[Rfam]
RNA: mraW RNA
Organism: Isoptericola variabilis
RNA sequence: CUGGCCCCGCACGGCGAGGCCUCCUCCCGCGAGGGUCUGGCGCACUUCCCCGGCGCCAGAACGACGCGGAGGGAGACCUGGCCGGGCGGGGCCGACACA
Numbered sequence: 001c002u003g004g005c006c007c008c009g010c011a012c013g014g015c016g017a018g019g020c021c022u023c024c025u026c027c028c029g030c031g032a033g034g035g036u037c038u039g040g041c042g043c044a045c046u047u048c049c050c051c052g053g054c055g056c057c058a059g060a061a062c063g064a065c066g067c068g069g070a071g072g073g074a075g076a077c078c079u080g081g082c083c084g085g086g087c088g089g090g091g092c093c094g095a096c097a098c099a
Stems, first nucleotide, its partner, number of pairs: 010086001012084004018078002021075005027069005034062001036060008